[Rfam]
RNA: JUMPstart RNA
Nucleotides: 038
Stems, first nucleotide, its partner, number of pairs: 008025005
Number, partner (000 for none) and nucleotide at each position: 001000c002000a003000g004000c005000a006000a007000a008025a009024u010023g011022g012021c013000a014000g015000c016000u017000g018000u019000a020000a021012g022011c023010c024009a025008u026000g027000g028000g029000c030000g031000g032000u033000a034000g035000c036000c037000u038000g